[Rfam]
RNA sequence: CCAGUCCCUAGUCAUGUGGGGAUGUAACUCAAGUGGGUGGCUUAGUAGGUGGAUGGAGACAGGGCUAGGGUAGAGGUUUGGUUUCACGGUAGUCUGCUAAGAGAUUGCCUAACGUAAAGUUUGUGUUGCCAGAGCAGUUCACGAGUAAUAUGGACUGAUCGGGCAUUAAAUAUUGGUGCACCAUCCUAGAGGCAGGCAACUGAACAGGAAACAGCCGAAGCACAAACUGGUACUUAGAUAACGAUCUCAUUGACUAUCCAAGCAAUCGCUCUACCCUGUCUCCAGCACAU
Numbered sequence: 001c002c003a004g005u006c007c008c009u010a011g012u013c014a015u016g017u018g019g020g021g022a023u024g025u026a027a028c029u030c031a032a033g034u035g036g037g038u039g040g041c042u043u044a045g046u047a048g049g050u051g052g053a054u055g056g057a058g059a060c061a062g063g064g065c066u067a068g069g070g071u072a073g074a075g076g077u078u079u080g081g082u083u084u085c086a087c088g089g090u091a092g093u094c095u096g097c098u099a100a101g102a103g104a105u106u107g108c109c110u111a112a113c114g115u116a117a118a119g120u121u122u123g124u125g126u127u128g129c130c131a132g133a134g135c136a137g138u139u140c141a142c143g144a145g146u147a148a149u150a151u152g153g154a155c156u157g158a159u160c161g162g163g164c165a166u167u168a169a170a171u172a173u174u175g176g177u178g179c180a181c182c183a184u185c186c187u188a189g190a191g192g193c194a195g196g197c198a199a200c201u202g203a204a205c206a207g208g209a210a211a212c213a214g215c216c217g218a219a220g221c222a223c224a225a226a227c228u229g230g231u232a233c234u235u236a237g238a239u240a241a242c243g244a245u246c247u248c249a250u251u252g253a254c255u256a257u258c259c260a261a262g263c264a265a266u267c268g269c270u271c272u273a274c275c276c277u278g279u280c281u282c283c284a285g286c287a288c289a290u
Stems, first nucleotide, its partner, number of pairs: 001040003004023007028037003047290001049288003054284006064277001069272002079268005087262001091255004096250001101248007109237002112235001114233003118228009127165004132160002135157007144149001166172001173218005184209003193202003
Overview: Rfam assigns this 290-nucleotide sequence from Pseudocohnilembus persalinus to the family "Metazoan signal recognition particle RNA". The source organism's lineage runs through Eukaryota, Ciliophora, Oligohymenophorea, Philasterida and Pseudocohnilembus. Rfam's curators write: The signal recognition particle (SRP) is a universally conserved ribonucleoprotein. It is involved in the co-translational targeting of proteins to membranes. It is annotated as a non-coding RNA gene. Its family is annotated with SRP-dependent cotranslational protein targeting to membrane, signal sequence recognition and signal recognition particle, endoplasmic reticulum targeting in the Gene Ontology. The base pairs follow the family's consensus structure, which is taken from published work.